[Rfam]
RNA sequence: AAUAGGAGAAUGAUAAAUCAGAUUUUUCGCUCAUAAUUUUCAGCUUUUUCCUCCUUAAAAAAAAUUAAAUCCAAUUAAAAAUGCUAUUGGAAAGGGAUAAAUCUGAUUUGUCGUUCUCCUAUU
Numbered sequence: 001a002a003u004a005g006g007a008g009a010a011u012g013a014u015a016a017a018u019c020a021g022a023u024u025u026u027u028c029g030c031u032c033a034u035a036a037u038u039u040u041c042a043g044c045u046u047u048u049u050c051c052u053c054c055u056u057a058a059a060a061a062a063a064a065u066u067a068a069a070u071c072c073a074a075u076u077a078a079a080a081a082u083g084c085u086a087u088u089g090g091a092a093a094g095g096g097a098u099a100a101a102u103c104u105g106a107u108u109u110g111u112c113g114u115u116c117u118c119c120u121a122u123u
Stems, first nucleotide, its partner, number of pairs: 001123022023100002026097002030094002034090001036088001042085002046081004